Mason-Pfizer monkey virus packaging signal: a 296-nucleotide RNA from Cavia porcellus. The source organism's lineage runs through Eukaryota, Boreoeutheria, Euarchontoglires, Hystricomorpha and Cavia. The base pairs follow the family's consensus structure, which was predicted with PFOLD. This family represents a group of sequences that are related to the Mason-Pfizer monkey virus (MPMV) packaging signal. The packaging signal is located in the 5' UTR and is required for specific RNA encapsidation. Rfam 15.1 lists 2,921 matches to the family in 53 species. For this family Rfam cites "Secondary structure model of the Mason-Pfizer monkey virus 5' leader sequence: identification of a structural motif common to a variety of retroviruses" (Harrison et al., J Virol, 1995). The family's RNA type in Rfam is cis-regulatory element.
RNA sequence: UGGCGCCCAUCGUGGGGCUCCUGGCACAAAGGGCUCAAUGAGGGAGCCGUCCUGAGACACACGUGUAAAAGUGAAACUAAAAGUUUUGUGACCAAUGCUACGUGGGAGCCUGCUGUGCCGCUAGAGUCAUGGUAAGUGGACAGUGAUCCUUUUCCCUUUUCUCCGGCAUGGGUCAGGCAUUAAGUGACCAUAAUGCUUUGUAUCAAGUUUAAGUAAAGCUUUAAAGACAAGAGGGAUAAAGGCUAAAGAAAAAGAUUUAUUGCAGUAUUUUCAAUUUAUUCAUAAGGUUUGCCCUU
Numbered sequence: 001u002g003g004c005g006c007c008c009a010u011c012g013u014g015g016g017g018c019u020c021c022u023g024g025c026a027c028a029a030a031g032g033g034c035u036c037a038a039u040g041a042g043g044g045a046g047c048c049g050u051c052c053u054g055a056g057a058c059a060c061a062c063g064u065g066u067a068a069a070a071g072u073g074a075a076a077c078u079a080a081a082a083g084u085u086u087u088g089u090g091a092c093c094a095a096u097g098c099u100a101c102g103u104g105g106g107a108g109c110c111u112g113c114u115g116u117g118c119c120g121c122u123a124g125a126g127u128c129a130u131g132g133u134a135a136g137u138g139g140a141c142a143g144u145g146a147u148c149c150u151u152u153u154c155c156c157u158u159u160u161c162u163c164c165g166g167c168a169u170g171g172g173u174c175a176g177g178c179a180u181u182a183a184g185u186g187a188c189c190a191u192a193a194u195g196c197u198u199u200g201u202a203u204c205a206a207g208u209u210u211a212a213g214u215a216a217a218g219c220u221u222u223a224a225a226g227a228c229a230a231g232a233g234g235g236a237u238a239a240a241g242g243c244u245a246a247a248g249a250a251a252a253a254g255a256u257u258u259a260u261u262g263c264a265g266u267a268u269u270u271u272c273a274a275u276u277u278a279u280u281c282a283u284a285a286g287g288u289u290u291g292c293c294c295u296u
Stems, first nucleotide, its partner, number of pairs: 006032002012027003033047004083133003090128002096123001097121002101117005181223003184219002231271004236266002240258003244254001284295001286293002